[Rfam]
RNA: Purine riboswitch aptamer
RNA sequence: GGAAAAAGUCGAAUAAUCUCUCGUAUAUCAUCGGGAAUAAGGCCCGAAAGUUUCUACCCGAAAACCUUAAAUUUUUGGACUACGAGUGAGCGAUAGUAUAGA
Numbered sequence: 001g002g003a004a005a006a007a008g009u010c011g012a013a014u015a016a017u018c019u020c021u022c023g024u025a026u027a028u029c030a031u032c033g034g035g036a037a038u039a040a041g042g043c044c045c046g047a048a049a050g051u052u053u054c055u056a057c058c059c060g061a062a063a064a065c066c067u068u069a070a071a072u073u074u075u076u077g078g079a080c081u082a083c084g085a086g087u088g089a090g091c092g093a094u095a096g097u098a099u100a101g102a
Base pairs, nucleotide, nucleotide: 018088020086021085022084023083024082025081031047032046033045034044035043058078059077060076061075062074063073064072